Notes:
A member of the RNA family "PyrR binding site" from Natronobacillus azotifigens, 109 nucleotides long. Its family is annotated with pyrimidine nucleobase transport and pyrimidine nucleobase biosynthetic process in the Gene Ontology. The organism belongs to Natronobacillus, within Bacteria.
RNA sequence: AUAACCUUUAAAGACAGUCCCGUGAGGCUGAAAAGGAUUCGGUUUUUGAUCUAGAUACGAUAGGUAUAUCUAAAUCCCUUUUCUCACGUGGAGAAAAGGGAUUUUUUGG
Numbered sequence: 001a002u003a004a005c006c007u008u009u010a011a012a013g014a015c016a017g018u019c020c021c022g023u024g025a026g027g028c029u030g031a032a033a034a035g036g037a038u039u040c041g042g043u044u045u046u047u048g049a050u051c052u053a054g055a056u057a058c059g060a061u062a063g064g065u066a067u068a069u070c071u072a073a074a075u076c077c078c079u080u081u082u083c084u085c086a087c088g089u090g091g092a093g094a095a096a097a098g099g100g101a102u103u104u105u106u107u108g109g
Base pairs, nucleotide, nucleotide: 003038005036006035007034008033009032015030016029017028018027019026049065050064051063052062053061072104073103074102075101076100077099078098079097080096081095082094083093084092085091